RNA sequence: UAGAGACCGCGUAAAUGACAAUUUCUAUCCGCCUACUAAGCCUACUACUACUCGCAUCCAAUGUGCGCGGUAUGCUUGUGGACGGAAGGUAACACGCAGUCCAGAAACAUAAAGAACCCGCGCCAGCCGCGGGUUUUUUU
Numbered sequence: 001u002a003g004a005g006a007c008c009g010c011g012u013a014a015a016u017g018a019c020a021a022u023u024u025c026u027a028u029c030c031g032c033c034u035a036c037u038a039a040g041c042c043u044a045c046u047a048c049u050a051c052u053c054g055c056a057u058c059c060a061a062u063g064u065g066c067g068c069g070g071u072a073u074g075c076u077u078g079u080g081g082a083c084g085g086a087a088g089g090u091a092a093c094a095c096g097c098a099g100u101c102c103a104g105a106a107a108c109a110u111a112a113a114g115a116a117c118c119c120g121c122g123c124c125a126g127c128c129g130c131g132g133g134u135u136u137u138u139u140u
Stems, first nucleotide, its partner, number of pairs: 006100002009097002016094002029085003033081004038076001046072004053067004113137010

Overview: Leucine operon leader: a 140-nucleotide sequence from Providencia stuartii. A search with the family's covariance model found it, with a score of 62 bits. At least 6 amino acid operons are known to be regulated by attenuation. Gene Ontology term of the family: leucine biosynthetic process.